[Rfam]
Nucleotides: 064
Stems, first nucleotide, its partner, number of pairs: 010025004016055006032045004
Number, partner (000 for none) and nucleotide at each position: 001000c002000u003000c004000g005000c006000g007000a008000g009000c010025g011024g012023a013022g014000a015000u016055g017054g018053a019052g020051u021050c022013c023012u024011c025010c026000g027000c028000a029000a030000g031000c032045g033044c034043c035042g036000g037000c038000c039000c040000a041000c042035c043034g044033g045032c046000u047000g048000a049000u050021g051020a052019c053018u054017c055016c056000u057000g058000c059000u060000g061000a062000g063000c064000a